[Rfam]
RNA sequence: CCAGAAUGGUAAUGAUGACCUGGUUGGACUAGAGUCUCUAAGAACUUCUCUGAGGAUCAUUGAAACCACCUGAGCCACUCUUA
Dot-bracket structure: ..((.((((..........(.(((.(.....((.((((..((.....))..)))).)).......).))).)..))).).)).

Notes
This 83-nucleotide RNA sequence from Neophocaena asiaeorientalis belongs to the Rfam family "Small nucleolar RNA ZL8". Rfam links the family to the GO terms RNA processing and nucleolus. Rfam 15.1 lists 113 matches to the family in 77 species. The match comes from Rfam's covariance-model search (75 bits). The literature on the family includes a 2013 paper in Genome Biol by Kishore et al., "Insights into snoRNA biogenesis and processing from PAR-CLIP of snoRNA core proteins and small RNA sequencing". NCBI's taxonomy places the organism under Eukaryota, Eumetazoa, Laurasiatheria, Phocoenidae, Neophocaena asiaeorientalis. The family's RNA type in Rfam is C/D-box small nucleolar RNA.